[Rfam]
RNA sequence: UUUUAUAGGCGGGAUCUCGGUCUAGGUAGUGGUAAGGUUUGUGCACGCGCGGCGUUUGAUGUGCGUGAGGUGGCCGAGUUUAGCAUGGAAGGACGCGUGGAAGGGGAGUGAAUGUGUGUGCGUGCAAGGCCGAGUGCGUGCGUGCAAGGAGAGUGCGUGCCCGCGUGCCGAGCCGGCCCUUCCUGAGCCCUUCCCCCCCUACACUCUGAUCUUAUUUGAUCGGGCCGGGUUCCCGCCUCGCCGGCCCGACCCGAGAUGAGAAGCUCCCCUCCCGCGAAGCCCCAGCCAGCUGUGGCCGGGGCGCUGUGCGGCGAGGCCUAUGCGAACAGGCGGCGGCCGCUCCCGGGCUCCCCGAGCCAGCCCCUCCGCGGGCCGGGCCGGGCCGGGCGCUCAGAAGUGAUGAGUUGAUCAGAUAGAUGAGGCUGGGCUCGCCCCUGCCCUUGAGUAUCGAGGCGAUUCUGAUCUGA
Numbered sequence: 001u002u003u004u005a006u007a008g009g010c011g012g013g014a015u016c017u018c019g020g021u022c023u024a025g026g027u028a029g030u031g032g033u034a035a036g037g038u039u040u041g042u043g044c045a046c047g048c049g050c051g052g053c054g055u056u057u058g059a060u061g062u063g064c065g066u067g068a069g070g071u072g073g074c075c076g077a078g079u080u081u082a083g084c085a086u087g088g089a090a091g092g093a094c095g096c097g098u099g100g101a102a103g104g105g106g107a108g109u110g111a112a113u114g115u116g117u118g119u120g121c122g123u124g125c126a127a128g129g130c131c132g133a134g135u136g137c138g139u140g141c142g143u144g145c146a147a148g149g150a151g152a153g154u155g156c157g158u159g160c161c162c163g164c165g166u167g168c169c170g171a172g173c174c175g176g177c178c179c180u181u182c183c184u185g186a187g188c189c190c191u192u193c194c195c196c197c198c199c200u201a202c203a204c205u206c207u208g209a210u211c212u213u214a215u216u217u218g219a220u221c222g223g224g225c226c227g228g229g230u231u232c233c234c235g236c237c238u239c240g241c242c243g244g245c246c247c248g249a250c251c252c253g254a255g256a257u258g259a260g261a262a263g264c265u266c267c268c269c270u271c272c273c274g275c276g277a278a279g280c281c282c283c284a285g286c287c288a289g290c291u292g293u294g295g296c297c298g299g300g301g302c303g304c305u306g307u308g309c310g311g312c313g314a315g316g317c318c319u320a321u322g323c324g325a326a327c328a329g330g331c332g333g334c335g336g337c338c339g340c341u342c343c344c345g346g347g348c349u350c351c352c353c354g355a356g357c358c359a360g361c362c363c364c365u366c367c368g369c370g371g372g373c374c375g376g377g378c379c380g381g382g383c384c385g386g387g388c389g390c391u392c393a394g395a396a397g398u399g400a401u402g403a404g405u406u407g408a409u410c411a412g413a414u415a416g417a418u419g420a421g422g423c424u425g426g427g428c429u430c431g432c433c434c435c436u437g438c439c440c441u442u443g444a445g446u447a448u449c450g451a452g453g454c455g456a457u458u459c460u461g462a463u464c465u466g467a
Stems, first nucleotide, its partner, number of pairs: 051189003055185001056099001116137001118135002121132001140177002145172001148169002151166001215262003220254004226248002229246001232244002235241002294348001296346006303340002308337002312335002316331003319326001356388003360384001361382003392466004402459006421439003426434002
Notes: Shown here is a 467-nucleotide RNA sequence from Phascolarctos cinereus, a member of the family "Small Cajal body-specific RNA 2". A search with the family's covariance model found it, with a score of 237 bits. Taxonomically the source falls in Phascolarctos (Eukaryota, Chordata, Diprotodontia, Phascolarctidae). By type it is a small Cajal body RNA.